[Rfam]
A member of the RNA family "U2 spliceosomal RNA" from Drosophila ananassae, 194 nucleotides long.
It is one of the family's seed sequences.
Taxonomically the source falls in ananassae species complex (Eukaryota, Allotriocarida, Aparaglossata, Drosophilini).
On this family, see Zwieb, Nucleic Acids Res 1997: "The uRNA database".
Rfam's curators write: U2 is a small nuclear RNA (snRNA) component of the spliceosome (involved in pre-mRNA splicing).
The base pairs follow the family's consensus structure, which is taken from published work.
Its Rfam clan is "U2 clan".
The family has 208 seed sequences and 71,512 matches in Rfam 15.1.
RNA sequence: AUCGCUUCUCGGCCUUAUGGCUAAGAUCAAAGUGUAGUAUCUGUUCUUAUCAGCUUAACAUCUGAUAGUUCCUCCAAUGGAGGACAAGCAAUGUUAAACAGAUUUUUGAUAUCAGACGGAGGGUAGGGGCUUGCUCCACCUCAGUCACGGGUCGUCCCGGUAUUGCACUACCGCCGGGAUUCGGCCCACAAAAU
Numbered sequence: 001a002u003c004g005c006u007u008c009u010c011g012g013c014c015u016u017a018u019g020g021c022u023a024a025g026a027u028c029a030a031a032g033u034g035u036a037g038u039a040u041c042u043g044u045u046c047u048u049a050u051c052a053g054c055u056u057a058a059c060a061u062c063u064g065a066u067a068g069u070u071c072c073u074c075c076a077a078u079g080g081a082g083g084a085c086a087a088g089c090a091a092u093g094u095u096a097a098a099c100a101g102a103u104u105u106u107u108g109a110u111a112u113c114a115g116a117c118g119g120a121g122g123g124u125a126g127g128g129g130c131u132u133g134c135u136c137c138a139c140c141u142c143a144g145u146c147a148c149g150g151g152u153c154g155u156c157c158c159g160g161u162a163u164u165g166c167a168c169u170a171c172c173g174c175c176g177g178g179a180u181u182c183g184g185c186c187c188a189c190a191a192a193a194u
Base pairs, nucleotide, nucleotide: 007026008025009024011022012021013020014019048067049066050065051064052063053062070084071083072082073081074080075079115146116145117144119142120141121140122139126137127136128135129134149187150186151185152184153183154182156178157177158176159175160174161173